This 265-nucleotide RNA sequence from Calcarius ornatus belongs to the Rfam family "Small Cajal body-specific RNA 7". The literature on the family includes a 2002 paper in EMBO J by Darzacq et al., "Cajal body-specific small nuclear RNAs: a novel class of 2'-O-methylation and pseudouridylation guide RNAs". Rfam classes the family as a small Cajal body RNA.
RNA sequence: GAGAAGUGAUGACACAGAGACAGCUGGCUGUGUUUGGAUGGGGUGUGUGUGAGCAGGGGUGGGGGCUGUGUGUGGUGUGGGUGUGGGGGCUCUCCUGGGGGCACUGAUGGCAGUGCUGAGCCAGGAGUGCAUCUGAGGCGUGUUGGGCACCUCGGGGCCCCUCUGCAACACUGCCUGUGAUUAAAGCCCCAAAAACGCCCACCAGGAGAGCCCCAGGCAGCCCAAAUGUCUCCAGGGUCACCAGUGAUCCUGUGCUCUGAUCUCA
Numbered sequence: 001g002a003g004a005a006g007u008g009a010u011g012a013c014a015c016a017g018a019g020a021c022a023g024c025u026g027g028c029u030g031u032g033u034u035u036g037g038a039u040g041g042g043g044u045g046u047g048u049g050u051g052a053g054c055a056g057g058g059g060u061g062g063g064g065g066c067u068g069u070g071u072g073u074g075g076u077g078u079g080g081g082u083g084u085g086g087g088g089g090c091u092c093u094c095c096u097g098g099g100g101g102c103a104c105u106g107a108u109g110g111c112a113g114u115g116c117u118g119a120g121c122c123a124g125g126a127g128u129g130c131a132u133c134u135g136a137g138g139c140g141u142g143u144u145g146g147g148c149a150c151c152u153c154g155g156g157g158c159c160c161c162u163c164u165g166c167a168a169c170a171c172u173g174c175c176u177g178u179g180a181u182u183a184a185a186g187c188c189c190c191a192a193a194a195a196c197g198c199c200c201a202c203c204a205g206g207a208g209a210g211c212c213c214c215a216g217g218c219a220g221c222c223c224a225a226a227u228g229u230c231u232c233c234a235g236g237g238u239c240a241c242c243a244g245u246g247a248u249c250c251u252g253u254g255c256u257c258u259g260a261u262c263u264c265a
Stems, first nucleotide, its partner, number of pairs: 001264004141170005146161002150157002